[Rfam]
RNA sequence: GCAUGGCAGAAUUCCAGAUGCCAUUUGCCAUUGGUUUCUCUGGUCAGACACCAUGCCAUAAAAAUGUUGACACUGAUCAGACCUUAUACUUCCUACAGCAGUAUUGUGUUGUAGGAAGUACUGACUGUUGCUACAUUU
Numbered sequence: 001g002c003a004u005g006g007c008a009g010a011a012u013u014c015c016a017g018a019u020g021c022c023a024u025u026u027g028c029c030a031u032u033g034g035u036u037u038c039u040c041u042g043g044u045c046a047g048a049c050a051c052c053a054u055g056c057c058a059u060a061a062a063a064a065u066g067u068u069g070a071c072a073c074u075g076a077u078c079a080g081a082c083c084u085u086a087u088a089c090u091u092c093c094u095a096c097a098g099c100a101g102u103a104u105u106g107u108g109u110u111g112u113a114g115g116a117a118g119u120a121c122u123g124a125c126u127g128u129u130g131c132u133a134c135a136u137u138u
Stems, first nucleotide, its partner, number of pairs: 001056006014043005071130002073127001075125001077124003087120012
Shown here is a 138-nucleotide RNA sequence from Zootermopsis nevadensis, a member of the family "Small nucleolar RNA SNORA15".
Taxonomically the source falls in Zootermopsis (Eukaryota, Eumetazoa, Protostomia, Termopsini).
Rfam 15.1 lists 974 matches to the family in 624 species.
From the family's description: ACA15 is a member of the H/ACA class of snoRNA that guide the sites of modification of uridines to pseudouridines.
It is annotated as an H/ACA-box small nucleolar RNA.